[Rfam]
The family of this 252-nucleotide RNA from Thermolongibacillus altinsuensis is "SR1 sRNA". It scores 71 bits against the family's covariance model.
RNA sequence: UAGUAAAACAUUAAAACGUUUUCAAACACAUUCAAAAAGAAAAGGGGUUAUUGGGGAUGGGCACAAUCGUAUGUCAAACUUGCAAUGCAACGAUCGAUUAUUUUGAAGAUGAGAAAGUAUCUGUGUUGUACGGUCAAUGCAAUGAAUGCGAUUGUAACGAGCAUGAGGAAGAGUAAGUGAUUAAGUGAGAAGUUUUGGGGGAUGAGGAGUCUCAUACAACGAAAGGCAUGCGCGUACUGCGCAUGCCUUUCU
Numbered sequence: 001u002a003g004u005a006a007a008a009c010a011u012u013a014a015a016a017c018g019u020u021u022u023c024a025a026a027c028a029c030a031u032u033c034a035a036a037a038a039g040a041a042a043a044g045g046g047g048u049u050a051u052u053g054g055g056g057a058u059g060g061g062c063a064c065a066a067u068c069g070u071a072u073g074u075c076a077a078a079c080u081u082g083c084a085a086u087g088c089a090a091c092g093a094u095c096g097a098u099u100a101u102u103u104u105g106a107a108g109a110u111g112a113g114a115a116a117g118u119a120u121c122u123g124u125g126u127u128g129u130a131c132g133g134u135c136a137a138u139g140c141a142a143u144g145a146a147u148g149c150g151a152u153u154g155u156a157a158c159g160a161g162c163a164u165g166a167g168g169a170a171g172a173g174u175a176a177g178u179g180a181u182u183a184a185g186u187g188a189g190a191a192g193u194u195u196u197g198g199g200g201g202a203u204g205a206g207g208a209g210u211c212u213c214a215u216a217c218a219a220c221g222a223a224a225g226g227c228a229u230g231c232g233c234g235u236a237c238u239g240c241g242c243a244u245g246c247c248u249u250u251c252u
Stems, first nucleotide, its partner, number of pairs: 016118002019116004025110001031107007040098001058093001060091001064087002070085001222250013
Its family is annotated with translation repressor activity, mRNA regulatory element binding and negative regulation of translational initiation in the Gene Ontology.